A member of the RNA family "Lysine riboswitch aptamer" from Metabacillus litoralis, 180 nucleotides long. Pairs were carried over by alignment from the consensus structure, which is taken from published work.
RNA sequence: AAUGAUGGUAGAGGUGCGAAUUUUAAGAGUAGCCUGUUUGAGGAGUAUGGUCUCCAAUGAUAACUGGUGAAAGGAAUGUUCGCCGAAGUGAGUAAAGCACCAUUUGCUUUAGUUGCUGGUUUUACAUUUAAGAGAUGUAAAAUUGUCAAGAAAUCUAUUUCUUGGAGAGCUAUCUCAUUG
Numbered sequence: 001a002a003u004g005a006u007g008g009u010a011g012a013g014g015u016g017c018g019a020a021u022u023u024u025a026a027g028a029g030u031a032g033c034c035u036g037u038u039u040g041a042g043g044a045g046u047a048u049g050g051u052c053u054c055c056a057a058u059g060a061u062a063a064c065u066g067g068u069g070a071a072a073g074g075a076a077u078g079u080u081c082g083c084c085g086a087a088g089u090g091a092g093u094a095a096a097g098c099a100c101c102a103u104u105u106g107c108u109u110u111a112g113u114u115g116c117u118g119g120u121u122u123u124a125c126a127u128u129u130a131a132g133a134g135a136u137g138u139a140a141a142a143u144u145g146u147c148a149a150g151a152a153a154u155c156u157a158u159u160u161c162u163u164g165g166a167g168a169g170c171u172a173u174c175u176c177a178u179u180g
Stems, first nucleotide, its partner, number of pairs: 007174005016083006023076002032068003036064003087117005093111006118144011146165007